Ribosomal protein L13 leader: a 55-nucleotide sequence from Atopobacter sp. AH10. Pairs were carried over by alignment from the consensus structure, which was predicted with CMfinder. A search with the family's covariance model found it, with a score of 55 bits. Rfam's curators write: This family is a putative r-protein leader autoregulatory structure found in B. subtilis and other low-GC Gram-positive bacteria.
RNA sequence: GGUAUUGUUUGCCCCACGAUGGAGCCCCGGAAACUCAAUUGUGUUCAAACAGAUC
Numbered sequence: 001g002g003u004a005u006u007g008u009u010u011g012c013c014c015c016a017c018g019a020u021g022g023a024g025c026c027c028c029g030g031a032a033a034c035u036c037a038a039u040u041g042u043g044u045u046c047a048a049a050c051a052g053a054u055c
Base pairs, nucleotide, nucleotide: 006051007050008049009048010047011046015043016042017041018040019039022036023035024034